[Rfam]
This 79-nucleotide RNA sequence from Cnephaeus nilssonii belongs to the Rfam family "mir-9198 microRNA precursor family". Its family is annotated with miRNA-mediated post-transcriptional gene silencing and RISC complex in the Gene Ontology.

RNA sequence: GCCGCCGCUUGCACCUGCUGCUGGUGCCCAGCACCGGUCCCUAUCACUCGGCGCCAUCAGUGGGUGCAAGCGGCGGCUG
Numbered sequence: 001g002c003c004g005c006c007g008c009u010u011g012c013a014c015c016u017g018c019u020g021c022u023g024g025u026g027c028c029c030a031g032c033a034c035c036g037g038u039c040c041c042u043a044u045c046a047c048u049c050g051g052c053g054c055c056a057u058c059a060g061u062g063g064g065u066g067c068a069a070g071c072g073g074c075g076g077c078u079g
Stems, first nucleotide, its partner, number of pairs: 004074017022056007